Source information:
This 250-nucleotide part of an RNA from Methanolacinia petrolearia belongs to the Rfam family "Archaeal large subunit ribosomal RNA". The sequence is in the family's curated seed alignment.

RNA sequence: GGAGUCUGAAGGUAAGACGGAAAUAGUACGAGAGGAACUUUCCGUCGGCGCCACUGGUAGACCGGUUGUCCGACAGGGCAAUGCCGGGUGGCUACGCGCUACGGGAUAAAAGCUGAAAGCAUCUAAGCUUGAAGCCUGACCUGAAAAGAGACUCCGUUAUAGGGCACGAGUAAAAGACUCGUUUGAUAGACUUGGGAUGUACGCACGAAGGCAACGACGUGUUCAGUCCACAAGCACUAACGCCCGAUAA
Numbered sequence: 001g002g003a004g005u006c007u008g009a010a011g012g013u014a015a016g017a018c019g020g021a022a023a024u025a026g027u028a029c030g031a032g033a034g035g036a037a038c039u040u041u042c043c044g045u046c047g048g049c050g051c052c053a054c055u056g057g058u059a060g061a062c063c064g065g066u067u068g069u070c071c072g073a074c075a076g077g078g079c080a081a082u083g084c085c086g087g088g089u090g091g092c093u094a095c096g097c098g099c100u101a102c103g104g105g106a107u108a109a110a111a112g113c114u115g116a117a118a119g120c121a122u123c124u125a126a127g128c129u130u131g132a133a134g135c136c137u138g139a140c141c142u143g144a145a146a147a148g149a150g151a152c153u154c155c156g157u158u159a160u161a162g163g164g165c166a167c168g169a170g171u172a173a174a175a176g177a178c179u180c181g182u183u184u185g186a187u188a189g190a191c192u193u194g195g196g197a198u199g200u201a202c203g204c205a206c207g208a209a210g211g212c213a214a215c216g217a218c219g220u221g222u223u224c225a226g227u228c229c230a231c232a233a234g235c236a237c238u239a240a241c242g243c244c245c246g247a248u249a250a
Stems, first nucleotide, its partner, number of pairs: 001155007010142004016046008047100005055094003062087005067080005103137003110130005162245004166182005187239003191234004195229003203222005210215001